[Rfam]
mir-998 microRNA precursor family: a 125-nucleotide sequence from Drosophila melanogaster. Its family is annotated with miRNA-mediated post-transcriptional gene silencing and RISC complex in the Gene Ontology. Lineage of the source: Eukaryota > Hexapoda > Acalyptratae > Drosophilinae > Sophophora.
RNA sequence: CAAAUUCAUUUUGGAACUGAAUUCUCGUGGGUCUGCACUGACAACACUGACCGCUCCAGGGCAAAUUGUUCAUUUUGAAAUUGAAAUUCUGUAGCACCAUGAGAUUCAGCUCUGGCGUGAAUUUC
Dot-bracket structure: ..(((((.(.(((((.(((...((((((((..(((((....................................................)))))..))))))))..))).))))).).)))))..